A member of the RNA family "Group II catalytic intron D1-D4-3" from Solimonas aquatica, 175 nucleotides long. From the family's description: Group II introns are found in rRNA, tRNA and mRNA of organelles in fungi, plants and protists, and also in mRNA in bacteria. It scores 110 bits against the family's covariance model. Taxonomically the source falls in Solimonas (Bacteria, Pseudomonadota, Gammaproteobacteria, Nevskiales).
RNA sequence: ACCGUCGCGAGACGGGGUCUGAAAGAAGCGGAAGCCGAGGCGGGGUGGCGAUGGACAAGAACUCGAUAUGAGGCGUGAUGCAUUCGGGACGAGCGGGCACGUGACCGCGAAGUCCUCUAUCUGCGAGGGGAUGCAUUUUGUAAAUCGAGCGUUUCAUGCCGCGAACGUCAUGGGU
Dot-bracket structure: .(((((....)))))............((..(...(...((((.(.((((...........((((((.....(((.(((((((...((((..((((........))))...))))...............))))))).)))..))))))))))...).))))....)...)..))